Record summary:
The family of this 102-nucleotide sequence from Paspalum vaginatum is "mir-166 microRNA precursor family". The family has 31 seed sequences and 2,599 matches in Rfam 15.1. NCBI's taxonomy places the organism under Eukaryota, Euphyllophyta, Magnoliopsida, Paspaleae, Paspalum. For this family Rfam cites "MicroRNAs in plants" (Reinhart et al., Genes Dev, 2002). A search with the family's covariance model found it, with a score of 77 bits. Rfam describes the family as follows. This family represents the plant microRNA (miRNA) precursor mir-166. Gene Ontology terms of the family: RISC complex and miRNA-mediated post-transcriptional gene silencing.
RNA sequence: UUUGAGGGGAAUGUUGUCUGGCUCGAGGCGUGCAGGAAACCUGGAGAUCUCUCGUAUCGAUCUAGUUCCAUCUCUCUCGGACCAGGCUUCAUUCCCCUCAAG
Numbered sequence: 001u002u003u004g005a006g007g008g009g010a011a012u013g014u015u016g017u018c019u020g021g022c023u024c025g026a027g028g029c030g031u032g033c034a035g036g037a038a039a040c041c042u043g044g045a046g047a048u049c050u051c052u053c054g055u056a057u058c059g060a061u062c063u064a065g066u067u068c069c070a071u072c073u074c075u076c077u078c079g080g081a082c083c084a085g086g087c088u089u090c091a092u093u094c095c096c097c098u099c100a101a102g
Stems, first nucleotide, its partner, number of pairs: 001102013016087006024079003